This 89-nucleotide sequence from Neiella litorisoli belongs to the Rfam family "t44 RNA".

RNA sequence: UGAACGGGCUUUAAAUAACACACACGUAUCGACACAUAUACCGGGGUGCCUCAUUGAGGUCGGCUAUAUGGGGUACGUGGAGGCCUAAC
Numbered sequence: 001u002g003a004a005c006g007g008g009c010u011u012u013a014a015a016u017a018a019c020a021c022a023c024a025c026g027u028a029u030c031g032a033c034a035c036a037u038a039u040a041c042c043g044g045g046g047u048g049c050c051u052c053a054u055u056g057a058g059g060u061c062g063g064c065u066a067u068a069u070g071g072g073g074u075a076c077g078u079g080g081a082g083g084c085c086u087a088a089c
Base pairs, nucleotide, nucleotide: 023079024078025077026076027075028074029073030072035070036069037068038067039066041063042062043061048060049059050058051057052056
This family consists of a number of bacterial RNA genes of between 135 and 170 bases in length. The t44 gene has been identified in several species of enteric bacteria but homologs have also been identified in Pseudomonas and Coxiella species. It scores 80 bits against the family's covariance model. NCBI's taxonomy places the organism under Bacteria, Pseudomonadati, Gammaproteobacteria, Echinimonadaceae, Neiella.